[Rfam]
RNA sequence: AAAUUUAAAACAACAAGAAAGUAACUUUGAUUUUGAAAUCUUUAGGAAGUUGGUGGUUGUGCAAACCAACGUUUUCAGCAAAGUGAAUGGGCUUGUGAUUAACUAAUAAAUUUGAUUUAAAAAAAUAAAGAAUCACGGCCGCUUCCGUUACAGAGCAACUUGUUUUUUGACAAGUUCUAAGAAAAUCAUUUGAUUUUAAAUUUACGGUGGCACCGCGCUCAAAGCGCCCGUAGG
Numbered sequence: 001a002a003a004u005u006u007a008a009a010a011c012a013a014c015a016a017g018a019a020a021g022u023a024a025c026u027u028u029g030a031u032u033u034u035g036a037a038a039u040c041u042u043u044a045g046g047a048a049g050u051u052g053g054u055g056g057u058u059g060u061g062c063a064a065a066c067c068a069a070c071g072u073u074u075u076c077a078g079c080a081a082a083g084u085g086a087a088u089g090g091g092c093u094u095g096u097g098a099u100u101a102a103c104u105a106a107u108a109a110a111u112u113u114g115a116u117u118u119a120a121a122a123a124a125a126u127a128a129a130g131a132a133u134c135a136c137g138g139c140c141g142c143u144u145c146c147g148u149u150a151c152a153g154a155g156c157a158a159c160u161u162g163u164u165u166u167u168u169g170a171c172a173a174g175u176u177c178u179a180a181g182a183a184a185a186u187c188a189u190u191u192g193a194u195u196u197u198a199a200a201u202u203u204a205c206g207g208u209g210g211c212a213c214c215g216c217g218c219u220c221a222a223a224g225c226g227c228c229c230g231u232a233g234g
Base pairs, nucleotide, nucleotide: 007100008099014095015094016093017092024084025083026082027081028080029079038073040071049070050069051068052067053066054065113135114134115133116132117131118130136147137146138145182197183196184195185194186193187192204231205230206229207228215227216226217225218224219223